[Rfam]
RNA sequence: ACGUCCUGCCCGUGAUCGUCUUCUCUCACGCUCACCGGGCAGGCAGAGAUACAGGUGGGCCCCCGCGAGAACGUGACUCGCGGGGGCCCACC
Number, nucleotide and partner (000 for none) at each position: 001a000002c000003g044004u000005c043006c042007u041008g040009c039010c038011c037012g035013u034014g033015a032016u000017c000018g029019u028020c000021u000022u000023c000024u000025c000026u000027c000028a019029c018030g000031c000032u015033c014034a013035c012036c000037g011038g010039g009040c008041a007042g006043g005044c003045a000046g000047a000048g000049a000050u000051a000052c000053a000054g092055g091056u090057g089058g088059g087060c086061c085062c084063c083064c082065g081066c080067g079068a078069g077070a000071a000072c000073g000074u000075g000076a000077c069078u068079c067080g066081c065082g064083g063084g062085g061086g060087c059088c058089c057090a056091c055092c054
Background: Rfam assigns this 92-nucleotide sequence to the family "sodF sRNA". On this family, see Kim et al., Nucleic Acids Res 2014: "Inverse regulation of Fe- and Ni-containing SOD genes by a Fur family regulator Nur through small RNA processed from 3'UTR of the sodF mRNA". It scores 81 bits against the family's covariance model. The base pairs follow the family's consensus structure.